[Rfam]
The family of this 135-nucleotide RNA from Synaphobranchus kaupii is "Small nucleolar RNA SNORA14". The base pairs follow the family's consensus structure, which was predicted with RNAfold. Rfam links the family to the GO terms RNA processing and nucleolus. ACA14 is a member of the H/ACA class of snoRNA that guide the sites of modification of uridines to pseudouridines.
RNA sequence: GCGCAUUCUUAUAAAACCCCCCAUUAGCUGCCUUUAGCUGCUGGGACAAGGAAGAAUGCCAGAGAAAUCCAAGAGUAAAGCAAGGCUCAGGGUGUUGCUUCUGUACCUCUCAGUUAUUUCGGCUCUUGGACAUUC
Numbered sequence: 001g002c003g004c005a006u007u008c009u010u011a012u013a014a015a016a017c018c019c020c021c022c023a024u025u026a027g028c029u030g031c032c033u034u035u036a037g038c039u040g041c042u043g044g045g046a047c048a049a050g051g052a053a054g055a056a057u058g059c060c061a062g063a064g065a066a067a068u069c070c071a072a073g074a075g076u077a078a079a080g081c082a083a084g085g086c087u088c089a090g091g092g093u094g095u096u097g098c099u100u101c102u103g104u105a106c107c108u109c110u111c112a113g114u115u116a117u118u119u120c121g122g123c124u125c126u127u128g129g130a131c132a133u134u135c
Base pairs, nucleotide, nucleotide: 003059004058005057006056009051010050020045021044022043023042026039027038028037064135065134068130069129070128071127072126073125074124084115085114086113087112089110090109092107098103
Record summary: The family's RNA type in Rfam is H/ACA-box small nucleolar RNA.